[Rfam]
RNA sequence: UAGAUACCCGUUGGGGGAAGGUGAGAACCUUCGCCAAGGUUCGAGUCGAGCAACGCGAGACAACGUCGCAAAGCGAGACAACGUCGCAAAGCGACGGCCCGCAGGGCGAGGAACGAAGUGACGAGUAAUCCUUCCCCCACCACCA
Numbered sequence: 001u002a003g004a005u006a007c008c009c010g011u012u013g014g015g016g017g018a019a020g021g022u023g024a025g026a027a028c029c030u031u032c033g034c035c036a037a038g039g040u041u042c043g044a045g046u047c048g049a050g051c052a053a054c055g056c057g058a059g060a061c062a063a064c065g066u067c068g069c070a071a072a073g074c075g076a077g078a079c080a081a082c083g084u085c086g087c088a089a090a091g092c093g094a095c096g097g098c099c100c101g102c103a104g105g106g107c108g109a110g111g112a113a114c115g116a117a118g119u120g121a122c123g124a125g126u127a128a129u130c131c132u133u134c135c136c137c138c139a140c141c142a143c144c145a
Stems, first nucleotide, its partner, number of pairs: 015136007022128001032108004040103001042101002047057002064096006
RNA: RtT RNA
Organism: Biostraticola tofi